[Rfam]
RNA sequence: UCUUCAUUUCGCACACUCUCUCUCGCCAGGUCAGAGUGACGAGAGAGUGUGCGAAAUGAAGAGA
Numbered sequence: 001u002c003u004u005c006a007u008u009u010c011g012c013a014c015a016c017u018c019u020c021u022c023u024c025g026c027c028a029g030g031u032c033a034g035a036g037u038g039a040c041g042a043g044a045g046a047g048u049g050u051g052c053g054a055a056a057u058g059a060a061g062a063g064a
Base pairs, nucleotide, nucleotide: 001062002061003060004059005058006057007056010053012051013050014049015048016047017046019044020043021042022041
RNA: mir-8364 microRNA precursor family